[Rfam]
RNA sequence: GCUGCCACUCGCACCCGCUGCUGGUGCCUGGCGCCGGCCCCGAUCACUUGGCACUGUCAGCGGAUGCGAGUGGCUGCUG
Number, nucleotide and partner (000 for none) at each position: 001g000002c000003u000004g074005c073006c072007a071008c070009u069010c068011g067012c066013a065014c000015c063016c062017g061018c060019u059020g058021c000022u056023g055024g054025u053026g052027c051028c050029u000030g000031g000032c000033g000034c000035c000036g000037g000038c000039c000040c000041c000042g000043a000044u000045c000046a000047c000048u000049u000050g028051g027052c026053a025054c024055u023056g022057u000058c020059a019060g018061c017062g016063g015064a000065u013066g012067c011068g010069a009070g008071u007072g006073g005074c004075u000076g000077c000078u000079g000